Overview
Rfam assigns this 319-nucleotide RNA from Winogradskyella endarachnes to the family "Bacterial RNase P class A". The base pairs follow the family's consensus structure, which is taken from published work. The source organism's lineage runs through Bacteria, Bacteroidota, Flavobacteriales, Flavobacteriaceae and Winogradskyella. From the family's description: Ribonuclease P (RNase P) is a ubiquitous endoribonuclease, found in archaea, bacteria and eukarya as well as chloroplasts and mitochondria.
[Rfam]
RNA sequence: CAAGUAAAUCGCCUUAUCGAUCUAAAUACUGAAACAAGUUCAGCACAAGGUAGGAAAGUCCGAACACCAUAGUGCAAUCAUAGUGGUUAACAGCCAUCCAUCGUAAGAUGAGGAAAAGUGCAACAGAAAGAAUGUACAGGUAAUGCUGUAGUGAAAUCAGGUAAACUCUAUGUGGUGCAAUGUCAUGUAAACUAACGUUUGAGCGUGCACGCGCGAUUGUUAGAGGGUAGGCAGCUAAAGUUUAUUAGUAAUAAUAAACGUAGAUAAAUGAUAAGGGCUCUUUUGAGUACAGAAUUCGGCUUAUAGAUUUGCUUAACUA
Numbered sequence: 001c002a003a004g005u006a007a008a009u010c011g012c013c014u015u016a017u018c019g020a021u022c023u024a025a026a027u028a029c030u031g032a033a034a035c036a037a038g039u040u041c042a043g044c045a046c047a048a049g050g051u052a053g054g055a056a057a058g059u060c061c062g063a064a065c066a067c068c069a070u071a072g073u074g075c076a077a078u079c080a081u082a083g084u085g086g087u088u089a090a091c092a093g094c095c096a097u098c099c100a101u102c103g104u105a106a107g108a109u110g111a112g113g114a115a116a117a118g119u120g121c122a123a124c125a126g127a128a129a130g131a132a133u134g135u136a137c138a139g140g141u142a143a144u145g146c147u148g149u150a151g152u153g154a155a156a157u158c159a160g161g162u163a164a165a166c167u168c169u170a171u172g173u174g175g176u177g178c179a180a181u182g183u184c185a186u187g188u189a190a191a192c193u194a195a196c197g198u199u200u201g202a203g204c205g206u207g208c209a210c211g212c213g214c215g216a217u218u219g220u221u222a223g224a225g226g227g228u229a230g231g232c233a234g235c236u237a238a239a240g241u242u243u244a245u246u247a248g249u250a251a252u253a254a255u256a257a258a259c260g261u262a263g264a265u266a267a268a269u270g271a272u273a274a275g276g277g278c279u280c281u282u283u284u285g286a287g288u289a290c291a292g293a294a295u296u297c298g299g300c301u302u303a304u305a306g307a308u309u310u311g312c313u314u315a316a317c318u319a
Stems, first nucleotide, its partner, number of pairs: 002314009011304001012276007020051004056302003060299005065177004072210003079172004083097005098112001099110004113168002118166002120162002135150005181233004192223005202217001204215003240259008